[Rfam]
RNA sequence: UGUCCCUAACGAUUGCGAACACCUGUAUGAAGCUGGAGCGGGCUUCUGGCUUCAUAUGGUGACCCCCGACGUGAUGUUAGGGAAU
Numbered sequence: 001u002g003u004c005c006c007u008a009a010c011g012a013u014u015g016c017g018a019a020c021a022c023c024u025g026u027a028u029g030a031a032g033c034u035g036g037a038g039c040g041g042g043c044u045u046c047u048g049g050c051u052u053c054a055u056a057u058g059g060u061g062a063c064c065c066c067c068g069a070c071g072u073g074a075u076g077u078u079a080g081g082g083a084a085u
Base pairs, nucleotide, nucleotide: 003083004082005081006080007079008078009077010076027055028054029053030052031051032050033049034048035047036046037045038044